[Rfam]
RNA sequence: ACAUGUCUGUGAAGAUGCGGACUACCUGCACCUGGACAGAAAGACCCUAUGAAGCUUUACUGUUCCCUGGGAUUGGCUUUGGGCCUUUCCUGCGCAGCUUAGGUGGAAGGCGAAGAAGGCCCCCUUCCGGGGGGCCCGAGCCAUCAGUAAGAUACCACUCUGGAAGAGCUCGGAUUCUAACCUUGUGUCAAACCCACGGGCCAAGGGACAGUCUCAGGUAGACAGUUUCUAUGGGGCGUAGGCCUCCCAAAAGGUAACGGAGGCGUGCAAAGGUUUCCUCGGGCCAGACGGACAUUGGUCCUCGAGUGCAAAGGCAGAAGGGAGCUUGACUGCAAGACUCACCCGUCGAGCAGAGACGAAAGUCGGCCUUAGUGAUCCGACGGUGCCGAGUGGAAGGGCCGUCGCUCAACGGAUAAAAGUUACUCUAGGGAUAACAGGCUGAUCUUCCCCAAGAGUCCACAUCGACGGGAAAGUUUGGCACCUCGAUGUCGGUUCUUCGCCACUUGGAGCUGUAGGUGGCCCAUUAAUGCGGUACGUGAGCUGGGUUCAGAACGUCGUGAGACAGUUCGGUCCAUAUCCGGUGUGGGCGUU
Numbered sequence: 001a002c003a004u005g006u007c008u009g010u011g012a013a014g015a016u017g018c019g020g021a022c023u024a025c026c027u028g029c030a031c032c033u034g035g036a037c038a039g040a041a042a043g044a045c046c047c048u049a050u051g052a053a054g055c056u057u058u059a060c061u062g063u064u065c066c067c068u069g070g071g072a073u074u075g076g077c078u079u080u081g082g083g084c085c086u087u088u089c090c091u092g093c094g095c096a097g098c099u100u101a102g103g104u105g106g107a108a109g110g111c112g113a114a115g116a117a118g119g120c121c122c123c124c125u126u127c128c129g130g131g132g133g134g135c136c137c138g139a140g141c142c143a144u145c146a147g148u149a150a151g152a153u154a155c156c157a158c159u160c161u162g163g164a165a166g167a168g169c170u171c172g173g174a175u176u177c178u179a180a181c182c183u184u185g186u187g188u189c190a191a192a193c194c195c196a197c198g199g200g201c202c203a204a205g206g207g208a209c210a211g212u213c214u215c216a217g218g219u220a221g222a223c224a225g226u227u228u229c230u231a232u233g234g235g236g237c238g239u240a241g242g243c244c245u246c247c248c249a250a251a252a253g254g255u256a257a258c259g260g261a262g263g264c265g266u267g268c269a270a271a272g273g274u275u276u277c278c279u280c281g282g283g284c285c286a287g288a289c290g291g292a293c294a295u296u297g298g299u300c301c302u303c304g305a306g307u308g309c310a311a312a313g314g315c316a317g318a319a320g321g322g323a324g325c326u327u328g329a330c331u332g333c334a335a336g337a338c339u340c341a342c343c344c345g346u347c348g349a350g351c352a353g354a355g356a357c358g359a360a361a362g363u364c365g366g367c368c369u370u371a372g373u374g375a376u377c378c379g380a381c382g383g384u385g386c387c388g389a390g391u392g393g394a395a396g397g398g399c400c401g402u403c404g405c406u407c408a409a410c411g412g413a414u415a416a417a418a419g420u421u422a423c424u425c426u427a428g429g430g431a432u433a434a435c436a437g438g439c440u441g442a443u444c445u446u447c448c449c450c451a452a453g454a455g456u457c458c459a460c461a462u463c464g465a466c467g468g469g470a471a472a473g474u475u476u477g478g479c480a481c482c483u484c485g486a487u488g489u490c491g492g493u494u495c496u497u498c499g500c501c502a503c504u505u506g507g508a509g510c511u512g513u514a515g516g517u518g519g520c521c522c523a524u525u526a527a528u529g530c531g532g533u534a535c536g537u538g539a540g541c542u543g544g545g546u547u548c549a550g551a552a553c554g555u556c557g558u559g560a561g562a563c564a565g566u567u568c569g570g571u572c573c574a575u576a577u578c579c580g581g582u583g584u585g586g587g588c589g590u591u
Base pairs, nucleotide, nucleotide: 005022006021007020008019009018025587026586027585028584029583030582031581032580034579035578036577039573046429047428048427049426051425052424053421054420055419056418057417059226060225061224062223066218067217068216069215070214071213072212075177076176078174079173080172081171082170083169084168086166087165088164089163090162092160102159103158104157105156106155109142110141111140118136119135120134121133122132123131124130125129181206182205183204187201188200189199229241230240231239232238242264243263244262245261246260247259265410267367268366273325274324275323276322277321278320279305280304282300283299284298285297286296287295306315307314330353331352332351333350336347337346338345355364356363357362378404379403380402381401382400383399384398386397387396438479439478440477442476443473445471446470447469448468449467453463454462490544491542492541493540494539495536497532498531499530500529503515504514517523518522550568551567552566553565554563555562556561
This 591-nucleotide part of an RNA belongs to the Rfam family "Bacterial large subunit ribosomal RNA". Its Rfam clan is "LSU clan".